The record is a 63-nucleotide sequence from Rhabdodendron amazonicum, which matches "Plastid-ccsA-ndhD-1 3UTR RNA" in Rfam. The family's consensus secondary structure was predicted with LocARNA. Plastid-ccsA-ndhD-1 is a non-coding RNA (ncRNA) recognised in plastids. It was found in the three prime untranslated region (3UTR) of ccsA and ndhD genes, its 3UTR location suggests a role in transcript maturation.

[Rfam]
RNA sequence: UAUAAAAAGGCGAGAACCAUUUGAAUCACUACACUACUGGAUUGAAAUGGUUCUCACAAACGU
Number, nucleotide and partner (000 for none) at each position: 001u000002a000003u000004a000005a000006a000007a000008a000009g000010g057011c000012g055013a054014g053015a052016a051017c050018c049019a048020u047021u046022u045023g000024a043025a042026u041027c040028a000029c000030u000031a000032c000033a000034c000035u000036a000037c000038u000039g000040g027041a026042u025043u024044g000045a022046a021047a020048u019049g018050g017051u016052u015053c014054u013055c012056a000057c010058a000059a000060a000061c000062g000063u000

The sequence is in the family's curated seed alignment.